TPP riboswitch aptamer (THI element): a 129-nucleotide RNA sequence from Kocuria rhizophila. The match comes from Rfam's covariance-model search (60 bits). The base pairs follow the family's consensus structure, which is taken from published work. From the family's description: Vitamin B(1) in its active form thiamin pyrophosphate (TPP) is an essential coenzyme that is synthesised by coupling of pyrimidine and thiazole moieties in bacteria.

RNA sequence: ACCAGUGACACGGGGUGCCGCCACCCUCCCCGCCCACCGGGCGGGCAGACAGAGGACCGCAGCGGCUGAGAUGACACCCGUCGAACCUGUCCAGUUAGUACUGGCGAAGGGAUGUCACGGUGGCACCGC
Dot-bracket structure: .....(((((((((.((((((........................................))))).......)..)))).....(((..((((......))))...)))..)))))............